[Rfam]
Nucleotides: 204
Base pairs, nucleotide, nucleotide: 002011004009023204025202028197029196033191034190035189036186039180040179041178062177063176064175065174066173068172074169075168076167080164081163082162083161084160085159087115088114089113090112093108094107095106096105
Number, partner (000 for none) and nucleotide at each position: 001000c002011a003000c004009u005000g006000c007000u008000a009004a010000a011002u012000c013000u014000c015000a016000a017000c018000c019000g020000g021000a022000c023204g024000c025202c026000a027000u028197g029196c030000a031000c032000a033191a034190u035189u036186g037000u038000u039180c040179c041178g042000u043000a044000c045000u046000u047000c048000a049000u050000g051000c052000a053000c054000g055000u056000u057000u058000u059000a060000u061000g062177c063176c064175g065174u066173a067000g068172u069000a070000u071000u072000c073000a074169g075168c076167a077000a078000a079000a080164g081163c082162a083161a084160g085159g086000c087115g088114g089113a090112u091000a092000a093108g094107u095106u096105u097000c098000c099000a100000u101000a102000a103000c104000a105096a106095a107094a108093c109000a110000a111000a112090a113089u114088c115087c116000a117000a118000a119000a120000a121000g122000g123000c124000c125000g126000g127000a128000c129000u130000g131000c132000c133000a134000u135000u136000g137000g138000c139000c140000u141000c142000c143000g144000a145000c146000u147000u148000u149000a150000c151000u152000g153000c154000c155000c156000g157000a158000a159085c160084c161083u162082u163081g164080c165000a166000a167076u168075g169074u170000a171000a172068a173066u174065g175064c176063g177062g178041c179040g180039g181000c182000c183000a184000c185000a186036u187000g188000g189035a190034a191033u192000g193000a194000a195000g196029g197028u198000u199000a200000c201000c202025g203000a204023c
Shown here is a 204-nucleotide RNA, a member of the family "Group II catalytic intron D1-D4-3".